[Rfam]
This 207-nucleotide RNA from Naumovozyma castellii belongs to the Rfam family "Small nucleolar RNA snR34". Lineage of the source: Eukaryota > Dikarya > Saccharomycetales > Saccharomycetaceae > Naumovozyma. Rfam's curators put it in the seed alignment. Its Rfam clan is "SNORA65 clan".

RNA sequence: GAAUCAAUAAUGCACGGAAACAAUGCCACAGUUGGCUGAACCUGUCUUCUAACAGUAGCUAAUUGCCAGUGUUUCAAAUAUAAUUGAAAUACCAGUUUCCCAGAUUAACAUAAUCAUUAUAUUUUGGACAGGAUAGGAAGUCCGAUGUCUGUGUACCUUCAUUAAAUGGAGGGGAUAGACAUGGGAUGUCGAAGAUAGUCUACAUUU
Numbered sequence: 001g002a003a004u005c006a007a008u009a010a011u012g013c014a015c016g017g018a019a020a021c022a023a024u025g026c027c028a029c030a031g032u033u034g035g036c037u038g039a040a041c042c043u044g045u046c047u048u049c050u051a052a053c054a055g056u057a058g059c060u061a062a063u064u065g066c067c068a069g070u071g072u073u074u075c076a077a078a079u080a081u082a083a084u085u086g087a088a089a090u091a092c093c094a095g096u097u098u099c100c101c102a103g104a105u106u107a108a109c110a111u112a113a114u115c116a117u118u119a120u121a122u123u124u125u126g127g128a129c130a131g132g133a134u135a136g137g138a139a140g141u142c143c144g145a146u147g148u149c150u151g152u153g154u155a156c157c158u159u160c161a162u163u164a165a166a167u168g169g170a171g172g173g174g175a176u177a178g179a180c181a182u183g184g185g186a187u188g189u190c191g192a193a194g195a196u197a198g199u200c201u202a203c204a205u206u207u
Stems, first nucleotide, its partner, number of pairs: 016075004030064009042055004108199002123195002140187004145182001147180004153176002156173005